Shown here is a 115-nucleotide RNA sequence from Thalassospira sp. HJ, a member of the family "sraL Hfq binding RNA". Rfam's curators write: The SraL RNA ('sra' for small RNA), discovered in E. coli, and later in Salmonella Tiphimurium. Rfam links the family to the GO term negative regulation of gene expression. On this family, see Argaman et al., Curr Biol 2001: "Novel small RNA-encoding genes in the intergenic regions of Escherichia coli". A search with the family's covariance model found it, with a score of 40 bits.
RNA sequence: GGAUAAGUAUUCUGUGCGCUUAGCCGCCUUGGGAAGCCGUUUUGCGCUUAAGAGGGACACCGACAAAGGCUGGAACCCGAAAUGAAAAAGGCAGCCUUUAGGGCUGCCUUUUUCA
Numbered sequence: 001g002g003a004u005a006a007g008u009a010u011u012c013u014g015u016g017c018g019c020u021u022a023g024c025c026g027c028c029u030u031g032g033g034a035a036g037c038c039g040u041u042u043u044g045c046g047c048u049u050a051a052g053a054g055g056g057a058c059a060c061c062g063a064c065a066a067a068g069g070c071u072g073g074a075a076c077c078c079g080a081a082a083u084g085a086a087a088a089a090g091g092c093a094g095c096c097u098u099u100a101g102g103g104c105u106g107c108c109u110u111u112u113u114c115a
Stems, first nucleotide, its partner, number of pairs: 003013001005011002026070003030039003040057004045052001084114013